[Rfam]
RNA: Ruegeria cis52 sRNA
RNA sequence: UGCGCAACGCGUGUUUCAGCACGAUAUCGCGGAACUUGACGCCUUUCAGCCGCGCCGUGCGGAUGUAUUGUGCGGUCAUCACCUCGGUCAUCGACGCACGGGUCAUCCGCGCGAUAUAGCCCAUCCCAUAAAGCGAGAUGGUCAGGACAGGCAGGAAGAAAUUCCAAAAUGUCGCGUCC
Number, nucleotide and partner (000 for none) at each position: 001u000002g000003c000004g000005c140006a139007a000008c137009g000010c135011g134012u133013g000014u131015u130016u128017c000018a000019g126020c000021a124022c000023g000024a000025u000026a000027u000028c000029g122030c000031g120032g000033a000034a000035c000036u000037u000038g000039a000040c111041g110042c109043c000044u000045u000046u105047c000048a103049g000050c101051c100052g099053c000054g097055c075056c074057g073058u072059g071060c070061g069062g068063a000064u000065g000066u000067a000068u062069u061070g060071u059072g058073c057074g056075g055076u000077c000078a000079u000080c000081a000082c096083c000084u094085c093086g092087g000088u000089c000090a000091u000092c086093g085094a084095c000096g082097c054098a000099c052100g051101g050102g000103u048104c000105a046106u000107c000108c000109g042110c041111g040112c000113g000114a000115u000116a000117u000118a000119g000120c031121c000122c029123a000124u021125c000126c019127c000128a016129u000130a015131a014132a000133g012134c011135g010136a000137g008138a000139u006140g005141g000142u000143c000144a000145g179146g178147a177148c000149a000150g173151g172152c171153a170154g165155g164156a163157a162158g000159a000160a000161a000162u157163u156164c155165c154166a000167a000168a000169a000170u153171g152172u151173c150174g000175c000176g000177u147178c146179c145